RNA: MIR390 microRNA precursor family
RNA sequence: GAGAAGAAUCUGUAAAGCUCAGGAGGGAUAGCGCCAUCUUUUUUUUUUUUUUGAAAAGGCUUUCAUGAUAGCGCCAUCUUCAUCACCACAUUACAUCGAUAUUUUGGCGCUGUCCAUCCUGAGUUUCAUUGGCUCUUCUU
Numbered sequence: 001g002a003g004a005a006g007a008a009u010c011u012g013u014a015a016a017g018c019u020c021a022g023g024a025g026g027g028a029u030a031g032c033g034c035c036a037u038c039u040u041u042u043u044u045u046u047u048u049u050u051u052u053g054a055a056a057a058g059g060c061u062u063u064c065a066u067g068a069u070a071g072c073g074c075c076a077u078c079u080u081c082a083u084c085a086c087c088a089c090a091u092u093a094c095a096u097c098g099a100u101a102u103u104u105u106g107g108c109g110c111u112g113u114c115c116a117u118c119c120u121g122a123g124u125u126u127c128a129u130u131g132g133c134u135c136u137u138c139u140u
Base pairs, nucleotide, nucleotide: 010131016125017124018123019122020121021120022119023118024117026115027114028113029112030111031110032109033108034107035106